[Rfam]
RNA sequence: GACACAUCCAGAGGAGUGGAGGGACUGGCCCUAUGAAGCUCCGGCAACCGCCGCCCCGCGCGGAGUAGGUGCCAAUUCCAGAGAGAUGUGGC
Numbered sequence: 001g002a003c004a005c006a007u008c009c010a011g012a013g014g015a016g017u018g019g020a021g022g023g024a025c026u027g028g029c030c031c032u033a034u035g036a037a038g039c040u041c042c043g044g045c046a047a048c049c050g051c052c053g054c055c056c057c058g059c060g061c062g063g064a065g066u067a068g069g070u071g072c073c074a075a076u077u078c079c080a081g082a083g084a085g086a087u088g089u090g091g092c
Base pairs, nucleotide, nucleotide: 001092003090004089005088006087007086008085013042014041015040016039017038021031022030023029025081026080027079028078043073044072045071046070048069049068051063052062053061077084
The family of this 92-nucleotide RNA from a Solirubrobacteraceae bacterium is "SAM riboswitch aptamer (S box leader)". A search with the family's covariance model found it, with a score of 72 bits. The SAM riboswitch is found upstream of a number of genes which code for proteins involved in methionine or cysteine biosynthesis in Gram-positive bacteria. Pairs were carried over by alignment from the consensus structure, which is taken from published work.